[Rfam]
RNA sequence: ACCUUAUCAAGAGAGGUGGAGGGAGACGGCCCUGUGAAGCCCGGCAACCAGCGCCCAGGAGCGCCAGGUGCCAAUUCCGGCGACCAAGUCGCAAGAUAAGGG
Dot-bracket structure: .(((((((....(.(((...(((...[[[)))......))))((((.((.((((......))))..))))))...(]]].((((...))))..)))))))).
Numbered sequence: 001a002c003c004u005u006a007u008c009a010a011g012a013g014a015g016g017u018g019g020a021g022g023g024a025g026a027c028g029g030c031c032c033u034g035u036g037a038a039g040c041c042c043g044g045c046a047a048c049c050a051g052c053g054c055c056c057a058g059g060a061g062c063g064c065c066a067g068g069u070g071c072c073a074a075u076u077c078c079g080g081c082g083a084c085c086a087a088g089u090c091g092c093a094a095g096a097u098a099a100g101g102g
Stems, first nucleotide, its partner, number of pairs: 002101007013042001015041003021032003027079003043072004048068002051064004076094001081091004

Overview: A member of the RNA family "SAM riboswitch aptamer (S box leader)" from Thermobaculum terrenum, 102 nucleotides long. The organism belongs to Thermobaculum terrenum, within Bacteria. From the family's description: The SAM riboswitch is found upstream of a number of genes which code for proteins involved in methionine or cysteine biosynthesis in Gram-positive bacteria. The SAM riboswitch acts at the level of transcription termination control. The predicted structure consists of a complex stem-loop region followed by a single stem loop terminator region. An alternative and mutually exclusive form involves bases in the 3' segment of helix 1 with those in the 5' region of helix 5 to form a structure termed the anti-terminator form.